[Rfam]
RNA sequence: GCCGCAAAGCUCGCCACCCCCAGCAGACUACACAUCUGUCUCUUCGCGAGCGGGCUAAGGUCUGAGUAUGCCAGCUUCCUCGACAGGCUCUCGACGGGUCCGAUUCUUACGAGUCGUGCGACAUACAAGAAAUUUGCCUGCAGUGGCUGGUUUCCGAAGACGUGUUCUGAAUGAGCACCGAGGAUUGCUAUGGGAGGCUUGAGACAUGUCGCGAAGCUUGGGCGACAUACUACCUCCUAGGUCCUCCACGACGUUGCCUUGCCGCUUCGUCGCCAACCUUCCCCACCAUCCGACCAACCCUAGUCGGGCAGAGCACGAAUGGCGGCUCUGCAUACUUCGAAACCCUCGCUUCAACAUCGUCUCCUCGAUGGGUUGGCGGGCGACCUGCUCAUCAUGAUGGUCGUCUACCGCGUUACAAGCUUGCCCUGCCAGCACUCGUUUGCAUGAUGCUACUUUGUGGCAUUGAGUGAGCAGGCCCGGGGGUCCGGGCUGGGUAUCGCCUUACCAGUCCUCUGCUUGGGUUUUUGAACGCGGUGGGUACGGGUUCUCGGGAGGCACCUUUUUGGAAACAUAUCGCUCUUGAGUGCAAUUUGCGGCCCGUGUCUUCGUCAAGGAGACGCGAAACUCGAUUCAGACUACUCUGGGUCUGC
Dot-bracket structure: (((((((.(((((.........(((((.......))))).......)))))..........[[[[[......((((.........(((((.....)))))((((((....)))))).(((((((...........(((.........................................................))).......)))))))..))))....................................................................................................................................................................................................................................................................................................................................................................................))))))).(((((((((.....)))))))))........]]]]]................